[Rfam]
Overview: Shown here is a 328-nucleotide sequence from Loxodonta africana, a member of the family "Small Cajal body-specific RNA 7". Rfam classes the family as a small Cajal body RNA. The base pairs follow the family's consensus structure.
RNA sequence: UGGAAAUGAUGAAAUAGAGAUAAUUGGGUGUUGAGUGUUGGAUGAUUGAAUUUUUCAGUAAGUGUUUUAAGUAAUUAUUAGUCUCAGUGUAAUAUUUUAUGUAAUUGUGUGCAUGAGGGUGUGUGUGUGUGCGUGAGUGUGGAGCUAUGGAAAGGGGGCACUGACUGGUGAUGCUGAUUCCGGAGUGCAUCUGAGGCUGUUGUAGAAAUACCUGGGUGCUGAUUACAACACUGCCAGUGAUUAUAACCCAAGAAGAGCUCACCUGACUAGCCUAGCACCCUAAAAUCUCUAACAGGUUCAUUAAACAUGGCCCUGUGAUCUGAUCCAA
Dot-bracket structure: ((((.................................................................................................................................................................................................((((((((.(.(((....))).)..)))))))).............................................................................................)))).
Gene Ontology terms of the family: nucleolus and RNA processing. The match comes from Rfam's covariance-model search (324 bits).